Notes: A member of the RNA family "MIR396 microRNA precursor family" from Populus trichocarpa, 171 nucleotides long. Its family is annotated with RISC complex and miRNA-mediated post-transcriptional gene silencing in the Gene Ontology. For this family Rfam cites "Computational identification of plant microRNAs and their targets, including a stress-induced miRNA" (Jones-Rhoades and Bartel, Mol Cell, 2004). Rfam 15.1 lists 744 matches to the family in 207 species. The source organism's lineage runs through Eukaryota, Streptophyta, Embryophyta, Magnoliopsida and Populus.
[Rfam]
Nucleotides: 171
Base pairs, nucleotide, nucleotide: 004167005166006165007164013158014157015156017154018153019152020151021150022149024147025146026145027144029142030141031140033138
Number, partner (000 for none) and nucleotide at each position: 001000u002000u003000g004167c005166a006165u007164g008000c009000u010000u011000u012000u013158c014157c015156a016000c017154g018153g019152c020151u021150u022149u023000c024147u025146u026145g027144a028000a029142c030141u031140u032000g033138g034000c035000a036000c037000u038000c039000a040000a041000g042000a043000g044000a045000c046000a047000u048000g049000a050000g051000a052000g053000u054000a055000a056000a057000g058000g059000g060000c061000u062000a063000g064000g065000c066000u067000u068000u069000c070000u071000u072000u073000u074000c075000u076000a077000u078000u079000c080000c081000u082000u083000u084000c085000g086000u087000u088000c089000u090000u091000u092000g093000a094000a095000a096000u097000u098000u099000u100000c101000c102000u103000g104000u105000u106000c107000a108000a109000a110000g111000a112000a113000u114000c115000c116000a117000u118000a119000c120000a121000u122000a123000u124000c125000a126000g127000u128000c129000u130000c131000u132000u133000u134000a135000g136000u137000a138033c139000a140031a141030a142029g143000c144027u145026c146025a147024a148000g149022a150021a151020a152019g153018c154017c155000g156015u157014g158013g159000g160000a161000a162000a163000a164007u165006a166005u167004g168000a169000a170000a171000g